Plant signal recognition particle RNA: a 305-nucleotide RNA from Trifolium pratense. Pairs were carried over by alignment from the consensus structure, which is taken from published work. A search with the family's covariance model found it, with a score of 243 bits. Lineage of the source: Eukaryota > Streptophytina > Fabales > Trifolieae > Trifolium. The family has 63 seed sequences and 4,988 matches in Rfam 15.1.
[Rfam]
RNA sequence: GCCGAGUUGGGUAGCUCCAGCUUGUAACCCAAGUGGGGGCAUUAAGGGUGACGGAACAUGGCUUAGGAUUUGCCAGGUUGGGUUGGAGGCUGCGACAUGUUGGCCUGCCCACUCCAAGUUGAGAGUUGAUCAAUGGAUCCUAGGCGAAGGCCUGAGAUUCAUUGGUCCUAGACAAGAGGGCACUGCGUCAGGCUGGCUUCACAGAGCAGCGAACACCUCUCCCUCUUGACAGUGGAGGGAUAACAGGCCUCUGCACUUCCAGCCCACAAUGCCUGGUGAGCCUAGCCACUUGAACCAUCACUUUU
Numbered sequence: 001g002c003c004g005a006g007u008u009g010g011g012u013a014g015c016u017c018c019a020g021c022u023u024g025u026a027a028c029c030c031a032a033g034u035g036g037g038g039g040c041a042u043u044a045a046g047g048g049u050g051a052c053g054g055a056a057c058a059u060g061g062c063u064u065a066g067g068a069u070u071u072g073c074c075a076g077g078u079u080g081g082g083u084u085g086g087a088g089g090c091u092g093c094g095a096c097a098u099g100u101u102g103g104c105c106u107g108c109c110c111a112c113u114c115c116a117a118g119u120u121g122a123g124a125g126u127u128g129a130u131c132a133a134u135g136g137a138u139c140c141u142a143g144g145c146g147a148a149g150g151c152c153u154g155a156g157a158u159u160c161a162u163u164g165g166u167c168c169u170a171g172a173c174a175a176g177a178g179g180g181c182a183c184u185g186c187g188u189c190a191g192g193c194u195g196g197c198u199u200c201a202c203a204g205a206g207c208a209g210c211g212a213a214c215a216c217c218u219c220u221c222c223c224u225c226u227u228g229a230c231a232g233u234g235g236a237g238g239g240a241u242a243a244c245a246g247g248c249c250u251c252u253g254c255a256c257u258u259c260c261a262g263c264c265c266a267c268a269a270u271g272c273c274u275g276g277u278g279a280g281c282c283u284a285g286c287c288a289c290u291u292g293a294a295c296c297a298u299c300a301c302u303u304u305u
Base pairs, nucleotide, nucleotide: 001040002039003038004023005022006021007020008019009018010017011016028037029036030035044305045304046303047302048301049300050299051298053296054295057292058291061287063285064284065283066282067281070279071278072277073276074275075274076273077272078271080265081264082263083262084261085260086259087258088257091255092254095252102249103248104247105246106245107244109239110238112237113236114235115234116233118230119229120228121227122226123225124224125223128167129166130165131164132163133162134161135160136159137158138157139156141154142153143152144151145150175220176219177218178217179216184213186211187210188209193204194203195202
Dot-bracket structure: (((((((((((....))))))))....(((....))))))...((((((((.((..((..(.(((((..(((((((((.(((((((((..((..(......((((((.((.(((((.((((((((..((((((((((((.(((((....))))).)))))))))))).......(((((....(.(((....(((......)))....))).)..)))))..))))))))..)))))))....))))))..).)).))))))))).....))))))))).))))).)...))..)).))))))))